The record is a 166-nucleotide part of an RNA from Fusarium redolens, which matches "Ascomycota telomerase RNA" in Rfam. It scores 349 bits against the family's covariance model. On this family, see Qi et al., Nucleic Acids Res 2013: "The common ancestral core of vertebrate and fungal telomerase RNAs". Pairs were carried over by alignment from the consensus structure.
RNA sequence: CAAGCCUGCAAGGAUCAAAUGGUCUAAACAGGUCCCUCAGAUCCGCCGAAAGGUUGAACUGAGACGAAAGGGUGGUUUUUAUGGAUGUCUUUUGUCCACCCGUCAACGCCCUCCAUAACUCUCGCUGGCGAGAACUUUGGAGAGGAAUCAAAAACUAGUCCUAGUU
Numbered sequence: 001c002a003a004g005c006c007u008g009c010a011a012g013g014a015u016c017a018a019a020u021g022g023u024c025u026a027a028a029c030a031g032g033u034c035c036c037u038c039a040g041a042u043c044c045g046c047c048g049a050a051a052g053g054u055u056g057a058a059c060u061g062a063g064a065c066g067a068a069a070g071g072g073u074g075g076u077u078u079u080u081a082u083g084g085a086u087g088u089c090u091u092u093u094g095u096c097c098a099c100c101c102g103u104c105a106a107c108g109c110c111c112u113c114c115a116u117a118a119c120u121c122u123c124g125c126u127g128g129c130g131a132g133a134a135c136u137u138u139g140g141a142g143a144g145g146a147a148u149c150a151a152a153a154a155c156u157a158g159u160c161c162u163a164g165u166u
Stems, first nucleotide, its partner, number of pairs: 007030002011025002014023003035066001036063005042057002047052001084160003087155002090153005109145002111142004120133005
Notes:
Its Rfam clan is "Telomerase clan".